[Rfam]
RNA: mir-718 microRNA precursor family
Organism: Castor canadensis
RNA sequence: GCGCCGGCGGUGGGCAAGAUGGCGGCGGGCCCGAGCACCGCCUCUUCCGCCGUGCCUGGCGUCGCA
Numbered sequence: 001g002c003g004c005c006g007g008c009g010g011u012g013g014g015c016a017a018g019a020u021g022g023c024g025g026c027g028g029g030c031c032c033g034a035g036c037a038c039c040g041c042c043u044c045u046u047c048c049g050c051c052g053u054g055c056c057u058g059g060c061g062u063c064g065c066a
Stems, first nucleotide, its partner, number of pairs: 001065003005061001009056003013051003018047002021044002024042005029036002